RNA sequence: AUCGUUCAUCUUCUUAUAUGAAGACGGAAGUAGACGGAAGUCGAAGGAACGCAUG
Number, nucleotide and partner (000 for none) at each position: 001a000002u000003c051004g050005u049006u048007c047008a000009u024010c023011u022012u021013c020014u000015u000016a000017u000018a000019u000020g013021a012022a011023g010024a009025c000026g000027g052028a000029a000030g000031u000032a000033g042034a041035c040036g000037g000038a000039a000040g035041u034042c033043g000044a000045a000046g000047g007048a006049a005050c004051g003052c027053a000054u000055g000